[Rfam]
RNA sequence: UGAGUAUCCUAAAAGCCGGGGGGGGCUGAGUAAAAGCCCCCCCGGCUUUUAGGAUACUCAAAAGGGAUCACAGAUGACAAAUAGCUAAGAAACUUAGCUGUCGAUUUAAAAGUAUGCUCAUUU
Numbered sequence: 001u002g003a004g005u006a007u008c009c010u011a012a013a014a015g016c017c018g019g020g021g022g023g024g025g026c027u028g029a030g031u032a033a034a035a036g037c038c039c040c041c042c043c044g045g046c047u048u049u050u051a052g053g054a055u056a057c058u059c060a061a062a063a064g065g066g067a068u069c070a071c072a073g074a075u076g077a078c079a080a081a082u083a084g085c086u087a088a089g090a091a092a093c094u095u096a097g098c099u100g101u102c103g104a105u106u107u108a109a110a111a112g113u114a115u116g117c118u119c120a121u122u123u
Stems, first nucleotide, its partner, number of pairs: 002059007013048009024038003075110001079107001081101003085097005
The family of this 123-nucleotide RNA from Sinocyclocheilus grahami is "Small nucleolar RNA SNORA11". Rfam 15.1 lists 2,014 matches to the family in 202 species. The family's RNA type in Rfam is H/ACA-box small nucleolar RNA. It scores 44 bits against the family's covariance model. NCBI's taxonomy places the organism under Eukaryota, Eumetazoa, Teleostei, Cypriniphysae, Sinocyclocheilus. On this family, see Gu et al., Nucleic Acids Res 2005: "A novel experimental approach for systematic identification of box H/ACA snoRNAs from eukaryotes".